[Rfam]
Nucleotides: 138
Stems, first nucleotide, its partner, number of pairs: 010047001012039003017034005050074008100133014
Number, partner (000 for none) and nucleotide at each position: 001000a002000c003000a004000u005000c006000a007000c008000c009000a010047u011000c012039a013038u014037c015000a016000u017034c018033c019032u020031g021030a022000u023000u024000a025000g026000u027000c028000u029000u030021u031020c032019g033018g034017g035000a036000g037014g038013a039012u040000a041000c042000g043000c044000c045000u046000c047010g048000c049000u050074c051073u052072g053071g054070a055069a056068g057067a058000c059000g060000c061000a062000c063000u064000c065000a066000c067057u068056c069055u070054u071053c072052c073051a074050g075000c076000g077000g078000u079000c080000a081000g082000a083000u084000a085000a086000g087000c088000a089000c090000u091000c092000a093000a094000g095000c096000a097000u098000u099000c100133a101132a102131g103130a104129c105128c106127c107126u108125c109124g110123g111122g112121a113120g114000a115000g116000a117000c118000a119000u120113u121112u122111u123110c124109c125108g126107a127106g128105g129104g130103u131102c132101u133100u134000u135000u136000c137000g138000u

The record is a 138-nucleotide sequence from Photobacterium aphoticum, which matches "Histidine operon leader" in Rfam. Rfam links the family to the GO term histidine biosynthetic process. About the family: At least 6 amino acid operons are known to be regulated by attenuation.